[Rfam]
The family of this 104-nucleotide sequence from Senna tora is "Small nucleolar RNA snoR109". It scores 78 bits against the family's covariance model. Rfam 15.1 lists 680 matches to the family in 220 species. By type it is an H/ACA-box small nucleolar RNA.

Nucleotides: 104
Stems, first nucleotide, its partner, number of pairs: 027097007038085003042081002045078001046076004
Number, partner (000 for none) and nucleotide at each position: 001000c002000g003000g004000c005000u006000a007000u008000a009000g010000c011000c012000a013000a014000a015000u016000c017000a018000a019000a020000c021000c022000a023000a024000u025000u026000u027097a028096g029095a030094a031093g032092c033091u034000a035000u036000c037000u038085g039084g040083c041000c042081g043080g044000u045078u046076g047075u048074u049073g050000u051000g052000a053000g054000c055000u056000c057000u058000u059000c060000c061000u062000u063000g064000g065000c066000u067000c068000u069000c070000u071000g072000u073049c074048a075047a076046c077000a078045a079000u080043u081042c082000u083040g084039c085038u086000u087000a088000c089000c090000g091033a092032g093031c094030u095029u096028c097027u098000u099000a100000c101000a102000u103000u104000u